[Rfam]
RNA sequence: UUAUAGAUGCACCCUGAUAAUCCAUUCCCCUUGCUGGCUCAAACUAGCGUGGGGAUUUUUUU
Numbered sequence: 001u002u003a004u005a006g007a008u009g010c011a012c013c014c015u016g017a018u019a020a021u022c023c024a025u026u027c028c029c030c031u032u033g034c035u036g037g038c039u040c041a042a043a044c045u046a047g048c049g050u051g052g053g054g055a056u057u058u059u060u061u062u
Base pairs, nucleotide, nucleotide: 004011027054028053029052030051032049033048034047035046036045037044
Dot-bracket structure: ...(......)...............((((.((((((......)))))).))))........